[Rfam]
RNA sequence: ACAAAAAAAGCCCUGCAGCACUUUGUCUGCAGGGGUCCUUUACAUUUGCUUUCCUCCGCGCAUCGGAGGAACAAGCAAACGAAAGGAAAAGAAAAGGGAGAGGAGAAACCGGAGGAAGAACUUAUGGGGAAACGUAAGUCUUCUCCGUGG
Numbered sequence: 001a002c003a004a005a006a007a008a009a010g011c012c013c014u015g016c017a018g019c020a021c022u023u024u025g026u027c028u029g030c031a032g033g034g035g036u037c038c039u040u041u042a043c044a045u046u047u048g049c050u051u052u053c054c055u056c057c058g059c060g061c062a063u064c065g066g067a068g069g070a071a072c073a074a075g076c077a078a079a080c081g082a083a084a085g086g087a088a089a090a091g092a093a094a095a096g097g098g099a100g101a102g103g104a105g106a107a108a109c110c111g112g113a114g115g116a117a118g119a120a121c122u123u124a125u126g127g128g129g130a131a132a133c134g135u136a137a138g139u140c141u142u143c144u145c146c147g148u149g150g
Base pairs, nucleotide, nucleotide: 011034012033013032014031015030016029017028018027036098037097038096039095040094045086046085047084110147111146112145113144115143116142117141118140120139121138122137123136124135

This 150-nucleotide sequence from Parageobacillus caldoxylosilyticus belongs to the Rfam family "ylbH leader".
Rfam links the family to the GO term regulation of gene expression.
From the family's description: This family is a putative regulatory RNA structure that is found upstream of the ylbH gene in B. subtilis and related low GC Gram-positive bacteria.
A search with the family's covariance model found it, with a score of 88 bits.